[Rfam]
Shown here is a 72-nucleotide sequence from Denticeps clupeoides, a member of the family "mir-21 microRNA precursor family". The organism belongs to Denticeps, within Eukaryota.

RNA sequence: UGUCGGAUAGCUUAUCAGACUGGUGUUGGCUCUUUUAUGGUAAAGCAACAACAGUCUGUAGGCUGUCUGACA
Numbered sequence: 001u002g003u004c005g006g007a008u009a010g011c012u013u014a015u016c017a018g019a020c021u022g023g024u025g026u027u028g029g030c031u032c033u034u035u036u037a038u039g040g041u042a043a044a045g046c047a048a049c050a051a052c053a054g055u056c057u058g059u060a061g062g063c064u065g066u067c068u069g070a071c072a
Stems, first nucleotide, its partner, number of pairs: 008065008018056005024050005

Pairs were carried over by alignment from the consensus structure, which was predicted with RNAalifold.
It scores 80 bits against the family's covariance model.